[Rfam]
Shown here is a 145-nucleotide sequence from Bacteroides reticulotermitis, a member of the family "GibS sRNA". The family's RNA type in Rfam is small RNA. The organism belongs to Bacteroides reticulotermitis, within Bacteria.
RNA sequence: GUGUUUUUCAUAGUAUUAGAUAUAAGAUUAAUUAGAAGGAUUGUACUCAACUUGUGAAAGCUUAAGUGCAUCAACAGCGGAAGCGUCUGCUUUUUUGAUAAAUGUAUGAAGGCAUCGGUUUCUACACAACCGAUGCUUUUUUUAU
Numbered sequence: 001g002u003g004u005u006u007u008u009c010a011u012a013g014u015a016u017u018a019g020a021u022a023u024a025a026g027a028u029u030a031a032u033u034a035g036a037a038g039g040a041u042u043g044u045a046c047u048c049a050a051c052u053u054g055u056g057a058a059a060g061c062u063u064a065a066g067u068g069c070a071u072c073a074a075c076a077g078c079g080g081a082a083g084c085g086u087c088u089g090c091u092u093u094u095u096u097g098a099u100a101a102a103u104g105u106a107u108g109a110a111g112g113c114a115u116c117g118g119u120u121u122c123u124a125c126a127c128a129a130c131c132g133a134u135g136c137u138u139u140u141u142u143u144a145u
Stems, first nucleotide, its partner, number of pairs: 043069004051060003076091006110138011
Its family is annotated with regulation of gene expression in the Gene Ontology.